[Rfam]
RNA sequence: CACAGAGUAGGGCUUUGCGCGUUAAGUGUCCGGUGGACGGGGAGUUGUCAUCGGAACGAAAAGCAGGAUUUCUGCUUGCGGUGCAGGACUCGCAUCCCGCUGUU
Numbered sequence: 001c002a003c004a005g006a007g008u009a010g011g012g013c014u015u016u017g018c019g020c021g022u023u024a025a026g027u028g029u030c031c032g033g034u035g036g037a038c039g040g041g042g043a044g045u046u047g048u049c050a051u052c053g054g055a056a057c058g059a060a061a062a063g064c065a066g067g068a069u070u071u072c073u074g075c076u077u078g079c080g081g082u083g084c085a086g087g088a089c090u091c092g093c094a095u096c097c098c099g100c101u102g103u104u
Stems, first nucleotide, its partner, number of pairs: 002103004010091003014087006020080003026057002029055008040097003044093001061077006
Background: The family of this 104-nucleotide RNA sequence from Firmicutes bacterium CAG:102 is "THF (Tetrahydrofolate) riboswitch aptamer". For this family Rfam cites "A eubacterial riboswitch class that senses the coenzyme tetrahydrofolate" (Ames et al., Chem Biol, 2010). The match comes from Rfam's covariance-model search (85 bits).